[Rfam]
Nucleotides: 193
Stems, first nucleotide, its partner, number of pairs: 003037006013030006061094005067088008159186012
Number, partner (000 for none) and nucleotide at each position: 001000a002000g003037g004036a005035c006034c007033u008032u009000u010000a011000a012000u013030u014029a015028a016027a017026u018025c019000c020000a021000g022000a023000g024000a025018g026017a027016u028015u029014u030013a031000c032008a033007a034006g035005g036004u037003u038000g039000c040000u041000u042000u043000g044000u045000u046000u047000a048000c049000g050000u051000g052000u053000g054000u055000u056000u057000u058000u059000u060000u061094g062093c063092a064091g065090a066000a067088g068087g069086g070085a071084a072083a073082g074081u075000a076000u077000a078000a079000a080000a081074g082073c083072u084071u085070u086069c087068u088067c089000g090065u091064c092063u093062g094061u095000u096000a097000a098000g099000g100000a101000a102000a103000u104000c105000a106000a107000a108000c109000a110000c111000a112000u113000u114000c115000g116000c117000a118000a119000a120000a121000g122000u123000g124000a125000u126000g127000a128000g129000c130000g131000g132000a133000u134000g135000u136000u137000g138000g139000a140000u141000c142000u143000u144000c145000u146000a147000a148000a149000c150000c151000a152000c153000a154000c155000g156000u157000u158000u159186a160185c161184c162183u163182c164181u165180u166179u167178g168177c169176g170175a171000c172000c173000a174000u175170u176169u177168g178167c179166a180165a181164a182163g183162a184161g185160g186159u187000u188000u189000u190000u191000u192000u193000a